[Rfam]
RNA sequence: UUAUAAGCAAAAAACUACUUUUUAGAUUCAUUGAAUGAGUGAUGUAUGUGGUCAUCAAUAUAGACCACAUACAUCAUUUAUUCAAUGAACCUAAAAAAUAGUAUUUUGCUUAUAA
Numbered sequence: 001u002u003a004u005a006a007g008c009a010a011a012a013a014a015c016u017a018c019u020u021u022u023u024a025g026a027u028u029c030a031u032u033g034a035a036u037g038a039g040u041g042a043u044g045u046a047u048g049u050g051g052u053c054a055u056c057a058a059u060a061u062a063g064a065c066c067a068c069a070u071a072c073a074u075c076a077u078u079u080a081u082u083c084a085a086u087g088a089a090c091c092u093a094a095a096a097a098a099u100a101g102u103a104u105u106u107u108g109c110u111u112a113u114a115a
Base pairs, nucleotide, nucleotide: 002114003113004112005111006110007109009107010106011105012104015101016100017099019097020096021095022094023093024092025091027089028088029087030086031085032084033083034082035081036080037079038078039077040076041075042074043073044072049067050066051065052064
RNA: MIR2593 microRNA precursor family
Organism: Medicago truncatula